[Rfam]
RNA sequence: CAGAAUGAUGAAGAGACCAUUAAUUUGUCUCCGCCGUCGUUUUAACAUUGAGGUAUAACAACGCCGAGUCAUCGUUUCGAUCGUCAUUUGUUUCGUUGGCGAUACGAUUGUUUCUCGUCUACAA
Numbered sequence: 001c002a003g004a005a006u007g008a009u010g011a012a013g014a015g016a017c018c019a020u021u022a023a024u025u026u027g028u029c030u031c032c033g034c035c036g037u038c039g040u041u042u043u044a045a046c047a048u049u050g051a052g053g054u055a056u057a058a059c060a061a062c063g064c065c066g067a068g069u070c071a072u073c074g075u076u077u078c079g080a081u082c083g084u085c086a087u088u089u090g091u092u093u094c095g096u097u098g099g100c101g102a103u104a105c106g107a108u109u110g111u112u113u114c115u116c117g118u119c120u121a122c123a124a
Stems, first nucleotide, its partner, number of pairs: 006039005013031005063119001065117004071108004080103007089095001
The family of this 124-nucleotide RNA sequence is "Small nucleolar RNA snoR111". Rfam 15.1 lists 533 matches to the family in 223 species.